[Rfam]
RNA sequence: AACUUAAUUAAUGAUUACCCUCGUAUAAUGAUGGGGAUAUGGCCCAUAAGUCUCUACCCGAUAACCGUAAAUUAUCGGACUAUGAGGGAAAGUCUAUAUGCC
Numbered sequence: 001a002a003c004u005u006a007a008u009u010a011a012u013g014a015u016u017a018c019c020c021u022c023g024u025a026u027a028a029u030g031a032u033g034g035g036g037a038u039a040u041g042g043c044c045c046a047u048a049a050g051u052c053u054c055u056a057c058c059c060g061a062u063a064a065c066c067g068u069a070a071a072u073u074a075u076c077g078g079a080c081u082a083u084g085a086g087g088g089a090a091a092g093u094c095u096a097u098a099u100g101c102c
Stems, first nucleotide, its partner, number of pairs: 018088008029049001031047005058078007